[Rfam]
Shown here is a 122-nucleotide RNA from Wenyingzhuangia fucanilytica, a member of the family "Bacteroidete tryptophan peptide leader RNA".
RNA sequence: UGAAUGUUAAAUUUGUGCUAAUGAAAAUGAUUACAAAAAAUACUUGGUGGUGGUACACUCUUAAUUAAUUAAGCGUGAGUAUCAAUGUGUAUUUUAUUAAAAUAAAUAUAUAAAGGCUUAUC
Number, nucleotide and partner (000 for none) at each position: 001u000002g000003a000004a000005u000006g000007u000008u000009a000010a000011a000012u000013u000014u000015g000016u000017g000018c000019u000020a000021a000022u000023g000024a000025a000026a000027a000028u000029g000030a000031u000032u000033a000034c000035a000036a095037a094038a093039a000040a092041u091042a090043c089044u000045u087046g086047g000048u000049g083050g082051u081052g080053g000054u000055a000056c077057a076058c075059u000060c073061u072062u000063a070064a069065u000066u000067a000068a000069u064070u063071a000072a061073g060074c000075g058076u057077g056078a000079g000080u052081a051082u050083c049084a000085a000086u046087g045088u000089g043090u042091a041092u040093u038094u037095u036096a000097u000098u000099a000100a000101a000102a000103u000104a000105a000106a000107u000108a000109u000110a000111u000112a000113a000114a000115g000116g000117c000118u000119u000120a000121u000122c000
NCBI's taxonomy places the organism under Bacteria, Pseudomonadati, Bacteroidota, Flavobacteriia, Wenyingzhuangia.